[Rfam]
RNA: Small nucleolar RNA SNORA11
RNA sequence: GGGGUGUGCUCAGAGCAGGGAGCCUGAAGAAAUGGCUUGUCUGUUUAUAACACACCCAACAGGAAUCUGGGUUUGAUGUGAAAAAGGGCACAAAACGUGUGGCCUUCCUACGAACAGACACCCUACACAU
Numbered sequence: 001g002g003g004g005u006g007u008g009c010u011c012a013g014a015g016c017a018g019g020g021a022g023c024c025u026g027a028a029g030a031a032a033u034g035g036c037u038u039g040u041c042u043g044u045u046u047a048u049a050a051c052a053c054a055c056c057c058a059a060c061a062g063g064a065a066u067c068u069g070g071g072u073u074u075g076a077u078g079u080g081a082a083a084a085a086g087g088g089c090a091c092a093a094a095a096c097g098u099g100u101g102g103c104c105u106u107c108c109u110a111c112g113a114a115c116a117g118a119c120a121c122c123c124u125a126c127a128c129a130u
Stems, first nucleotide, its partner, number of pairs: 002057007013046007021038001022036003070123002073120001077116003085105003089101004